Eukaryotic large subunit ribosomal RNA: a 485-nucleotide part of an RNA from Solanum tuberosum. Its family is annotated with ribosome and structural constituent of ribosome in the Gene Ontology.
RNA sequence: CCCUUCGAAGUUUCCCUCAGAAUAGCUAGAGCUCGGGUGCGAGUUCUAUCGGGUAAAGCCAAUGAUUUGAGGCUUUAUGGGCACAACACCCUGACCUAUUUUCAAACUUUAAAUCAGAAGGACGACGUGACUGCUUUGUUGAGCUGCACCACGGAAUCAAGAGCUCCAAGUGGGCCAUUUUUGGUAAACUGGACUAACGAUGAGGGAUGAACCGAAAGCCGGCUUAUGGUUCCAAACUGCACUCUAACCAAGAUCAUGUUGGUCGAUUAAGACAGCAGGAAAGUGGUAAUCGAAGUCAGACUACGCUAAGGAGUGUGUACCAACUCACAUGCCGAUUAAACUAUCCUCGAAAAUGGAUGAGCACUUAAGCGCGCGACCUACACUUAGUCGUCGGGGUAAGUGCCAGACCCCGAUGAGUUGGAAGGAAUGGCGGUUGCUACAAAACCUUGGGCAUUAGCCUGUGCGGAGCAGCCAUCUGUGUAGAU
Number, nucleotide and partner (000 for none) at each position: 001c425002c424003c000004u422005u421006c420007g000008a000009a000010g000011u024012u000013u022014c000015c020016c000017u000018c000019a000020g015021a000022a013023u000024a011025g000026c000027u168028a000029g166030a165031g164032c163033u162034c000035g000036g000037g000038u000039g000040c000041g000042a000043g000044u122045u121046c120047u119048a000049u117050c000051g115052g000053g000054u000055a000056a110057a108058g107059c000060c000061a000062a000063u104064g103065a102066u000067u000068u000069g000070a097071g096072g095073c000074u000075u094076u093077a092078u000079g090080g089081g087082c000083a000084c000085a000086a000087c081088a000089c080090c079091c000092u077093g076094a075095c072096c071097u070098a000099u000100u000101u000102u065103c064104a063105a000106a000107c058108u057109u000110u056111a000112a000113a000114u000115c051116a000117g049118a000119a047120g046121g045122a044123c000124g150125a000126c000127g147128u146129g145130a000131c143132u142133g000134c000135u000136u000137u000138g000139u000140u000141g000142a132143g131144c000145u129146g128147c127148a000149c000150c124151a000152c000153g000154g000155a000156a000157u000158c000159a000160a000161g000162a033163g032164c031165u030166c029167c000168a027169a000170g000171u000172g000173g000174g198175c000176c000177a195178u000179u193180u192181u191182u000183g189184g000185u000186a000187a000188a000189c183190u000191g181192g180193a179194c000195u177196a000197a000198c174199g000200a000201u000202g000203a000204g213205g212206g000207a000208u000209g000210a000211a000212c205213c204214g000215a000216a000217a000218g388219c387220c000221g385222g384223c000224u382225u000226a000227u000228g378229g377230u376231u000232c000233c000234a000235a000236a000237c375238u000239g374240c000241a000242c371243u000244c369245u000246a000247a000248c000249c000250a000251a000252g000253a000254u000255c000256a000257u000258g345259u000260u343261g342262g341263u340264c000265g000266a337267u000268u000269a000270a000271g000272a000273c000274a000275g332276c331277a330278g000279g328280a000281a000282a000283g000284u000285g000286g000287u299288a000289a000290u000291c000292g000293a000294a000295g000296u000297c000298a000299g287300a000301c000302u000303a000304c000305g000306c310307u000308a000309a000310g306311g326312a000313g000314u000315g324316u323317g000318u000319a000320c000321c000322a000323a316324c315325u000326c311327a000328c279329a000330u277331g276332c275333c000334g000335a000336u000337u266338a000339a000340a263341c262342u261343a260344u000345c258346c000347u000348c000349g000350a000351a000352a000353a000354u000355g000356g000357a000358u000359g000360a000361g000362c000363a000364c000365u000366u000367a000368a000369g244370c000371g242372c000373g000374c239375g237376a230377c229378c228379u000380a000381c000382a224383c000384u222385u221386a000387g219388u218389c415390g414391u413392c412393g411394g410395g409396g408397u407398a000399a000400g000401u000402g000403c000404c000405a000406g000407a397408c396409c395410c394411c393412g392413a391414u390415g389416a000417g000418u000419u000420g006421g005422a004423a000424g002425g001426a000427a000428u000429g476430g475431c000432g473433g472434u471435u470436g469437c468438u000439a000440c000441a000442a000443a000444a000445c463446c000447u000448u000449g000450g459451g458452c457453a000454u000455u000456a000457g452458c451459c450460u000461g000462u000463g445464c000465g000466g000467a000468g437469c436470a435471g434472c433473c432474a000475u430476c429477u000478g000479u000480g000481u000482a000483g000484a000485u000

Annotation
The organism belongs to Solanum, within Eukaryota. It is one of the family's seed sequences.